Lysine riboswitch aptamer: a 184-nucleotide sequence from Ureibacillus yapensis. It scores 110 bits against the family's covariance model.
RNA sequence: CUGUGAGGUAGAGGCGCGAUAUUUAUUAGUUUUCAUGGAGUUUAGAGCGAAACAAUGAUAUGAAAAAUGAGGAAAUGUCGCCGAAGUGUGUAGUAGGCUCUCUAUUGCAUGCUGGGUCUGCAGUGAAAAAUUGCAGGACUGUCUCAGAUGGAGUCCCAGCCAUCUGAGGGGUGCUAUCUCAACC
Numbered sequence: 001c002u003g004u005g006a007g008g009u010a011g012a013g014g015c016g017c018g019a020u021a022u023u024u025a026u027u028a029g030u031u032u033u034c035a036u037g038g039a040g041u042u043u044a045g046a047g048c049g050a051a052a053c054a055a056u057g058a059u060a061u062g063a064a065a066a067a068u069g070a071g072g073a074a075a076u077g078u079c080g081c082c083g084a085a086g087u088g089u090g091u092a093g094u095a096g097g098c099u100c101u102c103u104a105u106u107g108c109a110u111g112c113u114g115g116g117u118c119u120g121c122a123g124u125g126a127a128a129a130a131u132u133g134c135a136g137g138a139c140u141g142u143c144u145c146a147g148a149u150g151g152a153g154u155c156c157c158a159g160c161c162a163u164c165u166g167a168g169g170g171g172u173g174c175u176a177u178c179u180c181a182a183c184c
Stems, first nucleotide, its partner, number of pairs: 006179006016081009030066008085113012114140002117137008142169010